[Rfam]
RNA sequence: GCGUUUUGUGUUCACUGCAGACCUUGAUUUAAUGUCACACGAUUAAGGCACGCAGUGAAUGCCAAAGUUU
Numbered sequence: 001g002c003g004u005u006u007u008g009u010g011u012u013c014a015c016u017g018c019a020g021a022c023c024u025u026g027a028u029u030u031a032a033u034g035u036c037a038c039a040c041g042a043u044u045a046a047g048g049c050a051c052g053c054a055g056u057g058a059a060u061g062c063c064a065a066a067g068u069u070u
Stems, first nucleotide, its partner, number of pairs: 003068004008062008017053002022048008
Dot-bracket structure: ..((((.((((((((.((...((((((((...........))))))))...)).))))))))..))))..
A member of the RNA family "mir-124 microRNA precursor family" from Gallus gallus, 70 nucleotides long. Its family is annotated with miRNA-mediated post-transcriptional gene silencing and RISC complex in the Gene Ontology. Rfam's curators put it in the seed alignment. The family's consensus secondary structure was predicted with PFOLD. Lineage of the source: Eukaryota > Teleostomi > Archosauria > Saurischia > Gallus. The family has 122 seed sequences and 2,215 matches in Rfam 15.1.